Rfam assigns this 252-nucleotide sequence from Trifolium subterraneum to the family "MIR2655 microRNA precursor family".
[Rfam]
RNA sequence: CCCUUAUCUUUUAAAAGUUUAAAGUUGGUCCCUUAUCUUUAUUUUAGGUUUCAAGUUGGUCCCUUCCGUCAAUUUUUUAACUAUUUCUGUUAAAUUUGGACACGUGGCAAACUAAUUUGGACACGUGGCACACUUGGACAGAUGACACGAGUUCAAUUUUAACAGUAACAGUAAAAAAAUUGACGGAAGGGACCAAUUUGAAACCUAAAAUAAAGAUAAGGGACCAAUUUGAAACUUUUAAAAGAUAAGGGA
Numbered sequence: 001c002c003c004u005u006a007u008c009u010u011u012u013a014a015a016a017g018u019u020u021a022a023a024g025u026u027g028g029u030c031c032c033u034u035a036u037c038u039u040u041a042u043u044u045u046a047g048g049u050u051u052c053a054a055g056u057u058g059g060u061c062c063c064u065u066c067c068g069u070c071a072a073u074u075u076u077u078u079a080a081c082u083a084u085u086u087c088u089g090u091u092a093a094a095u096u097u098g099g100a101c102a103c104g105u106g107g108c109a110a111a112c113u114a115a116u117u118u119g120g121a122c123a124c125g126u127g128g129c130a131c132a133c134u135u136g137g138a139c140a141g142a143u144g145a146c147a148c149g150a151g152u153u154c155a156a157u158u159u160u161a162a163c164a165g166u167a168a169c170a171g172u173a174a175a176a177a178a179a180u181u182g183a184c185g186g187a188a189g190g191g192a193c194c195a196a197u198u199u200g201a202a203a204c205c206u207a208a209a210a211u212a213a214a215g216a217u218a219a220g221g222g223a224c225c226a227a228u229u230u231g232a233a234a235c236u237u238u239u240a241a242a243a244g245a246u247a248a249g250g251g252a
Stems, first nucleotide, its partner, number of pairs: 002250007023229003027225003031221013045207003
Notes: The source organism's lineage runs through Eukaryota, Viridiplantae, Streptophyta, Gunneridae and Trifolium.